[Rfam]
A member of the RNA family "mir-194 microRNA precursor family" from Eleutherodactylus coqui, 80 nucleotides long.
RNA sequence: UAGUGCCUAUCAGGUGUAACAGCAACUCCAUGUGGACGGCUGCGGACUCCAGUGGAGAUGCUGUUACUUUUGAUGGGCAC
Numbered sequence: 001u002a003g004u005g006c007c008u009a010u011c012a013g014g015u016g017u018a019a020c021a022g023c024a025a026c027u028c029c030a031u032g033u034g035g036a037c038g039g040c041u042g043c044g045g046a047c048u049c050c051a052g053u054g055g056a057g058a059u060g061c062u063g064u065u066a067c068u069u070u071u072g073a074u075g076g077g078c079a080c
Base pairs, nucleotide, nucleotide: 010073011072012071016067017066018065019064020063021062022061023060026057027056028055029054030053031052033051034050035049
Taxonomically the source falls in Eleutherodactylus (Eukaryota, Chordata, Vertebrata, Gnathostomata). Rfam links the family to the GO terms RISC complex and miRNA-mediated post-transcriptional gene silencing.